[Rfam]
RNA: Small nucleolar RNA SNORA42/SNORA80 family
RNA sequence: GCAUGGGUUUGGGUUUAUGGCAGGCCUGUCCCCCGGGGUCUCUCAUGGUGCCCCAUUCCAGAGCAAACUGUGGCUUUGAACCAUUGCCUGCCUCUACCCGUAGGCAGCAGGCCCUGAAGAAAAUAAAAAAUAA
Numbered sequence: 001g002c003a004u005g006g007g008u009u010u011g012g013g014u015u016u017a018u019g020g021c022a023g024g025c026c027u028g029u030c031c032c033c034c035g036g037g038g039u040c041u042c043u044c045a046u047g048g049u050g051c052c053c054c055a056u057u058c059c060a061g062a063g064c065a066a067a068c069u070g071u072g073g074c075u076u077u078g079a080a081c082c083a084u085u086g087c088c089u090g091c092c093u094c095u096a097c098c099c100g101u102a103g104g105c106a107g108c109a110g111g112c113c114c115u116g117a118a119g120a121a122a123a124u125a126a127a128a129a130a131u132a133a
Stems, first nucleotide, its partner, number of pairs: 001058001003056002005053004015048006022041003025037002071126001073124001075122002082116002087111002089106005